[Rfam]
RNA: c-di-GMP-I-GGC riboswitch aptamer
Organism: Desulforamulus aquiferis
RNA sequence: UCCGAUAAAGGCAAACCUGCCGAAAGGUUGGGACGCAAAACCACGGGCCUAAGGUUUAUCUAUGGCUGCCGGGUUACCGAAA
Numbered sequence: 001u002c003c004g005a006u007a008a009a010g011g012c013a014a015a016c017c018u019g020c021c022g023a024a025a026g027g028u029u030g031g032g033a034c035g036c037a038a039a040a041c042c043a044c045g046g047g048c049c050u051a052a053g054g055u056u057u058a059u060c061u062a063u064g065g066c067u068g069c070c071g072g073g074u075u076a077c078c079g080a081a082a
Stems, first nucleotide, its partner, number of pairs: 001082001003079002011036002016031002019028003034068001039075004044071003047066003